[Rfam]
RNA sequence: AAAGUCCCCGACCAUUGAAGGACCAGCAAUCCACAAGGUCCCCGAGUCAUGCGUUGCAUACCGCGAGGUAUGGGGCGAAGCGUUGACAGGGGUGUUGACAGGCCAGCCAUUGAGCCACGAAAUGUAUAUUAAAUUACCGGGUGCCGACGUUGUACUGUUAACGGAAGGCAACAUCAUAGGGUGCGAUACUGCGAGUGCCACAUGGACCCGGCGGGGUCUGAGACCG
Numbered sequence: 001a002a003a004g005u006c007c008c009c010g011a012c013c014a015u016u017g018a019a020g021g022a023c024c025a026g027c028a029a030u031c032c033a034c035a036a037g038g039u040c041c042c043c044g045a046g047u048c049a050u051g052c053g054u055u056g057c058a059u060a061c062c063g064c065g066a067g068g069u070a071u072g073g074g075g076c077g078a079a080g081c082g083u084u085g086a087c088a089g090g091g092g093u094g095u096u097g098a099c100a101g102g103c104c105a106g107c108c109a110u111u112g113a114g115c116c117a118c119g120a121a122a123u124g125u126a127u128a129u130u131a132a133a134u135u136a137c138c139g140g141g142u143g144c145c146g147a148c149g150u151u152g153u154a155c156u157g158u159u160a161a162c163g164g165a166a167g168g169c170a171a172c173a174u175c176a177u178a179g180g181g182u183g184c185g186a187u188a189c190u191g192c193g194a195g196u197g198c199c200a201c202a203u204g205g206a207c208c209c210g211g212c213g214g215g216g217u218c219u220g221a222g223a224c225c226g
Base pairs, nucleotide, nucleotide: 012038013037015036016035017034020032021031022030026192027191040092041091042090043089046087047086048085049084050082051081052077053076054075055074057072058071059070060069061068062067111220112218114217115216116215118213119212137211138210139209140208141207142206143169144168145167148163149162150161151160174205175204176203177202180199181198182197183196184195